Source information
The family of this 27-nucleotide sequence from Muntiacus reevesi is "L31-Firmicutes ribosomal protein leader". The family is grouped with related families in Rfam's "Ribosomal Protein L31 Leader clan". It scores 34 bits against the family's covariance model. It is annotated as a cis-regulatory leader. NCBI's taxonomy places the organism under Eukaryota, Eumetazoa, Euteleostomi, Pecora, Muntiacus. For this family Rfam cites "Discovery of 20 novel ribosomal leader candidates in bacteria and archaea" (Eckert and Weinberg, BMC Microbiol, 2020).
RNA sequence: CUCUGACUAAAGUCAGGGCAAAAGGAG
Numbered sequence: 001c002u003c004u005g006a007c008u009a010a011a012g013u014c015a016g017g018g019c020a021a022a023a024g025g026a027g
Base pairs, nucleotide, nucleotide: 001018002017003016004015005014006013007012